[Rfam]
RNA sequence: GUUUUGAUGGCAGUGAGGUUAGUGAUUGUGGAAUGCUGGGGACAAUCAGCUAACUACACUGCCUGCAAACC
Numbered sequence: 001g002u003u004u005u006g007a008u009g010g011c012a013g014u015g016a017g018g019u020u021a022g023u024g025a026u027u028g029u030g031g032a033a034u035g036c037u038g039g040g041g042a043c044a045a046u047c048a049g050c051u052a053a054c055u056a057c058a059c060u061g062c063c064u065g066c067a068a069a070c071c
Stems, first nucleotide, its partner, number of pairs: 003069004009063002012060004017055006023048007
Shown here is a 71-nucleotide RNA sequence from Urocynchramus pylzowi, a member of the family "mir-34 microRNA precursor family".
A search with the family's covariance model found it, with a score of 55 bits.
For this family Rfam cites "Numerous microRNPs in neuronal cells containing novel microRNAs" (Dostie et al., RNA, 2003).
The organism belongs to Urocynchramus, within Eukaryota.
Human mir-34a was discovered computationally and later experimentally verified. The mature sequence is excised from the 5' arm of the hairpin.